[Rfam]
RNA sequence: ACAAAGAUGAUGACUAGGAAGAGUAGGCGGAGCAUGGACUUUUUUCAGAGAGCCGGGGCAGGUGUGAUUCCGGUAAAAGGACUGCCGUUGAAUGGGCCUGUGAGUUGCGGACCGAAGUUUAAGUAGGCUCCGACGGAUUGUUCCACCGUUACAGGGAACGGGGUAUCGGACGUUUUCACACUUUGUCCCGUACCUGUCAAAGCGGGUCUGCGCAUAUUGCAGGCCAAUGAAGGUGGCACCGCGAAAGCAUAAGUCUUUCGUCCUUCCC
Numbered sequence: 001a002c003a004a005a006g007a008u009g010a011u012g013a014c015u016a017g018g019a020a021g022a023g024u025a026g027g028c029g030g031a032g033c034a035u036g037g038a039c040u041u042u043u044u045u046c047a048g049a050g051a052g053c054c055g056g057g058g059c060a061g062g063u064g065u066g067a068u069u070c071c072g073g074u075a076a077a078a079g080g081a082c083u084g085c086c087g088u089u090g091a092a093u094g095g096g097c098c099u100g101u102g103a104g105u106u107g108c109g110g111a112c113c114g115a116a117g118u119u120u121a122a123g124u125a126g127g128c129u130c131c132g133a134c135g136g137a138u139u140g141u142u143c144c145a146c147c148g149u150u151a152c153a154g155g156g157a158a159c160g161g162g163g164u165a166u167c168g169g170a171c172g173u174u175u176u177c178a179c180a181c182u183u184u185g186u187c188c189c190g191u192a193c194c195u196g197u198c199a200a201a202g203c204g205g206g207u208c209u210g211c212g213c214a215u216a217u218u219g220c221a222g223g224c225c226a227a228u229g230a231a232g233g234u235g236g237c238a239c240c241g242c243g244a245a246a247g248c249a250u251a252a253g254u255c256u257u258u259c260g261u262c263c264u265u266c267c268c
Stems, first nucleotide, its partner, number of pairs: 007105002015100004026089005041077003052074006108132004112127002134148003205225007230265004241261007
RNA: T-box leader